Annotation:
The family of this 99-nucleotide sequence from Fenollaria massiliensis is "Glycine riboswitch aptamer". The source organism's lineage runs through Bacteria, Bacillati, Bacillota, Clostridia and Fenollaria. For this family Rfam cites "A glycine-dependent riboswitch that uses cooperative binding to control gene expression" (Mandal et al., Science, 2004).

[Rfam]
RNA sequence: ACGACAGAUGCGGGAGAGAACGUAUGUCACCGAAGGGUAAAGAAUUUGAGCUCACUACUCUAAUUCAAAAGUCUCAGGUAAAAGAACCGUAUUUUGACA
Dot-bracket structure: .....((((((((......((....)).(((((..(((...(((((...............)))))....))))).))).......)))))))).....
The match comes from Rfam's covariance-model search (51 bits).